[Rfam]
RNA sequence: GGCGAUAAACGCGUUAUGGAAUAAGCGUUGCGGACCCGGGGGCGGUACCCGGCGCCUCCACCAGCUUGCCACUCCCGGAACCUUCAGGCGCUUCGCCCGGUUCCGAGAUGGCCCCACGGGGGCGAAAUAGGAUCGACGCGCGUGGUAAAGGUAACGUUUUUGCCCGGCAUGGUUCCGCCGUUAUCGGGCCAACACAGAAGUGCCAACGACAACAAUCGUCUGGCUCUCGCUGCCUAA
Numbered sequence: 001g002g003c004g005a006u007a008a009a010c011g012c013g014u015u016a017u018g019g020a021a022u023a024a025g026c027g028u029u030g031c032g033g034a035c036c037c038g039g040g041g042g043c044g045g046u047a048c049c050c051g052g053c054g055c056c057u058c059c060a061c062c063a064g065c066u067u068g069c070c071a072c073u074c075c076c077g078g079a080a081c082c083u084u085c086a087g088g089c090g091c092u093u094c095g096c097c098c099g100g101u102u103c104c105g106a107g108a109u110g111g112c113c114c115c116a117c118g119g120g121g122g123c124g125a126a127a128u129a130g131g132a133u134c135g136a137c138g139c140g141c142g143u144g145g146u147a148a149a150g151g152u153a154a155c156g157u158u159u160u161u162g163c164c165c166g167g168c169a170u171g172g173u174u175c176c177g178c179c180g181u182u183a184u185c186g187g188g189c190c191a192a193c194a195c196a197g198a199a200g201u202g203c204c205a206a207c208g209a210c211a212a213c214a215a216u217c218g219u220c221u222g223g224c225u226c227u228c229g230c231u232g233c234c235u236a237a
Stems, first nucleotide, its partner, number of pairs: 001164005014154004026142003030139003036052005053124007165180004